SAM riboswitch aptamer (S box leader): a 106-nucleotide RNA sequence from Sporosarcina sp. BI001-red. The base pairs follow the family's consensus structure, which is taken from published work.
[Rfam]
RNA sequence: CGCUUAUCAAGAGAAACCGAGGGAAAUGGCCCGAUGACGUUUCAGCAACCCCUGACAGAAUCAGGAAGGUGCUACUUCCACAAGACUUUGUCUUGAGAGAUAAGAG
Number, nucleotide and partner (000 for none) at each position: 001c106002g000003c104004u103005u102006a101007u100008c099009a000010a000011g000012a000013g043014a042015a041016a040017c039018c000019g000020a000021g032022g031023g030024a000025a000026a000027u000028g079029g078030c023031c022032c021033g000034a000035u000036g000037a000038c000039g017040u016041u015042u014043c013044a073045g072046c071047a070048a000049c069050c068051c065052c064053u063054g062055a000056c000057a000058g000059a000060a000061u000062c054063a053064g052065g051066a000067a000068g050069g049070u047071g046072c045073u044074a000075c000076u000077u098078c029079c028080a000081c095082a094083a093084g092085a091086c090087u000088u000089u000090g086091u085092c084093u083094u082095g081096a000097g000098a077099g008100a007101u006102a005103a004104g003105a000106g001